[Rfam]
RNA sequence: UGUUGACAAAUCUCCGGAAUCUCUGCACCUCCUUGAUGAUUCAAUUUGAACCUAUUUGCUGAUGUCUGCUUGAUUUAAU
Numbered sequence: 001u002g003u004u005g006a007c008a009a010a011u012c013u014c015c016g017g018a019a020u021c022u023c024u025g026c027a028c029c030u031c032c033u034u035g036a037u038g039a040u041u042c043a044a045u046u047u048g049a050a051c052c053u054a055u056u057u058g059c060u061g062a063u064g065u066c067u068g069c070u071u072g073a074u075u076u077a078a079u
Stems, first nucleotide, its partner, number of pairs: 002079005

The record is a 79-nucleotide RNA sequence from Coregonus sp. 'balchen', which matches "Small nucleolar RNA MBII-202" in Rfam.
The source organism's lineage runs through Eukaryota, Gnathostomata, Salmonidae, Coregoninae and Coregonus.
It is annotated as a C/D-box small nucleolar RNA.
Rfam 15.1 lists 745 matches to the family in 452 species.
A reference for the family is Huttenhofer et al. (2001), "RNomics: an experimental approach that identifies 201 candidates for novel, small, non-messenger RNAs in mouse", EMBO J.